[Rfam]
RNA: mir-8799 microRNA precursor family
RNA sequence: GGGGGGAGGGCCGGAUCGUGGGCUGUGUCCCGUGCCCUGUGCUCCCGGCCUGCGCCGUAGGAAUCGCGCUCCUGGCCGCCAGCCCCCU
Numbered sequence: 001g002g003g004g005g006g007a008g009g010g011c012c013g014g015a016u017c018g019u020g021g022g023c024u025g026u027g028u029c030c031c032g033u034g035c036c037c038u039g040u041g042c043u044c045c046c047g048g049c050c051u052g053c054g055c056c057g058u059a060g061g062a063a064u065c066g067c068g069c070u071c072c073u074g075g076c077c078g079c080c081a082g083c084c085c086c087c088u
Stems, first nucleotide, its partner, number of pairs: 001088006009080002012078003017075001020072003024068004028062003031057001032055004039050001041049003